[Rfam]
RNA sequence: GAUUUUGCGAAGGACUAGACCUUAAUUCCUUAAUC
Numbered sequence: 001g002a003u004u005u006u007g008c009g010a011a012g013g014a015c016u017a018g019a020c021c022u023u024a025a026u027u028c029c030u031u032a033a034u035c
Stems, first nucleotide, its partner, number of pairs: 001035004007029001009028001010023004
This 35-nucleotide sequence belongs to the Rfam family "S4-Flavobacteria ribosomal protein leader". A reference for the family is Eckert and Weinberg (2020), "Discovery of 20 novel ribosomal leader candidates in bacteria and archaea", BMC Microbiol. By type it is a cis-regulatory leader.